[Rfam]
RNA sequence: GCGCGAGGACGGCCUCGCCUUUCCAAAAUUAUGUGCAUGGGACGACCCCU
Number, nucleotide and partner (000 for none) at each position: 001g020002c000003g018004c017005g016006a015007g014008g013009a000010c000011g000012g000013c008014c007015u006016c005017g004018c003019c000020u001021u000022u000023c000024c000025a000026a000027a000028a000029u000030u000031a000032u000033g000034u000035g000036c000037a050038u000039g048040g047041g046042a000043c000044g000045a000046c041047c040048c039049c000050u037
Shown here is a 50-nucleotide RNA sequence from Nordella sp. HKS 07, a member of the family "Guanidine-II riboswitch aptamer (mini-ykkC)". The source organism's lineage runs through Bacteria, Pseudomonadati, Pseudomonadota, Alphaproteobacteria and Nordella.